This 103-nucleotide RNA sequence from Faecalibacterium duncaniae belongs to the Rfam family "TPP riboswitch aptamer (THI element)".
Lineage of the source: Bacteria > Bacillota > Eubacteriales > Oscillospiraceae > Faecalibacterium.
Rfam describes the family as follows. Vitamin B(1) in its active form thiamin pyrophosphate (TPP) is an essential coenzyme that is synthesised by coupling of pyrimidine and thiazole moieties in bacteria. The previously detected thiamin-regulatory element, thi box was extended, resulting in a new, highly conserved RNA secondary structure, the THI element, which is widely distributed in eubacteria and also occurs in some archaea. Analysis of operon structures identified a large number of new candidate thiamin-regulated genes, mostly transporters, in various prokaryotic organisms. The THI element is a riboswitch that directly binds to TPP to regulate gene expression through a variety of mechanisms in archaea, bacteria and eukaryotes. through a variety of mechanisms in archaea, bacteria and eukaryotes.
Rfam links the family to the GO term thiamine pyrophosphate binding.
A search with the family's covariance model found it, with a score of 62 bits.
The base pairs follow the family's consensus structure, which is taken from published work.
RNA sequence: ACAUAAAAACAGGGGCGCUGAAAAGCUGAGAUCCGCACCUGAGCGGAGUACCCUCGAACCUGAUCCGGGUAAUGCCGGCGUAGGUAGUUUGCGGAAAGGUCCA
Numbered sequence: 001a002c003a004u005a006a007a008a009a010c011a012g013g014g015g016c017g018c019u020g021a022a023a024a025g026c027u028g029a030g031a032u033c034c035g036c037a038c039c040u041g042a043g044c045g046g047a048g049u050a051c052c053c054u055c056g057a058a059c060c061u062g063a064u065c066c067g068g069g070u071a072a073u074g075c076c077g078g079c080g081u082a083g084g085u086a087g088u089u090u091g092c093g094g095a096a097a098g099g100u101c102c103a
Base pairs, nucleotide, nucleotide: 007090008089009088010087011054012053013052014051016048017026018025019024033046034045035044036043059084060083061082062081065078066077067076068075